[Rfam]
RNA sequence: CGCCAUUAUCAAGAAUCUCAAUAAGGGAGAUAGCAACCUGCAAAACGAGCAAGGUGCUAAAGUGAUAAGCCAGUGCUGGAAAAAACGUUGAAUCC
Numbered sequence: 001c002g003c004c005a006u007u008a009u010c011a012a013g014a015a016u017c018u019c020a021a022u023a024a025g026g027g028a029g030a031u032a033g034c035a036a037c038c039u040g041c042a043a044a045a046c047g048a049g050c051a052a053g054g055u056g057c058u059a060a061a062g063u064g065a066u067a068a069g070c071c072a073g074u075g076c077u078g079g080a081a082a083a084a085a086c087g088u089u090g091a092a093u094c095c
Stems, first nucleotide, its partner, number of pairs: 006068005015031005032058003037054003040050002047088001070079003
RNA: SAM-I/IV (S-adenosyl methionine) riboswitch aptamer
Organism: Salinimicrobium catena